Annotation
The family of this 199-nucleotide sequence from Polynucleobacter necessarius is "carA ncRNA motif". carA ncRNA motif was reported as a Strong Riboswitch Candidate CarA ncRNA motif was located upstream of carA gene which codes for the small subunit of carbamoyl phosphate synthase, which is an enzyme that catalyses the first committed step in pyrimidine and arginine biosynthesis. It is proposed as a possible cis-regulatory element.
RNA sequence: GGGAGCUUUUUCCUUUUAGAGCCCAUUGGGCUGGGGAGUCAAGGGUUUACGAGUAAAAAUGGUAUGAUUUAAGGGUUCGAAACUAAUUAAAUACCCUAGCGCUUAAAGACACUCACCUCCCGCAAAAACAUCCUCGGGUUGGUUUUUUUGAGGGUUUUGAGCGUCGGAUGGAGCAGGGACUGGAGAUGGUUUGUCACCC
Numbered sequence: 001g002g003g004a005g006c007u008u009u010u011u012c013c014u015u016u017u018a019g020a021g022c023c024c025a026u027u028g029g030g031c032u033g034g035g036g037a038g039u040c041a042a043g044g045g046u047u048u049a050c051g052a053g054u055a056a057a058a059a060u061g062g063u064a065u066g067a068u069u070u071a072a073g074g075g076u077u078c079g080a081a082a083c084u085a086a087u088u089a090a091a092u093a094c095c096c097u098a099g100c101g102c103u104u105a106a107a108g109a110c111a112c113u114c115a116c117c118u119c120c121c122g123c124a125a126a127a128a129c130a131u132c133c134u135c136g137g138g139u140u141g142g143u144u145u146u147u148u149u150g151a152g153g154g155u156u157u158u159g160a161g162c163g164u165c166g167g168a169u170g171g172a173g174c175a176g177g178g179a180c181u182g183g184a185g186a187u188g189g190u191u192u193g194u195c196a197c198c199c
Stems, first nucleotide, its partner, number of pairs: 016036002020032004037046001039044001060073001064069001094178004101174004108165003112161004119154003126149003132142002
Taxonomically the source falls in Polynucleobacter (Bacteria, Pseudomonadati, Burkholderiales, Burkholderiaceae).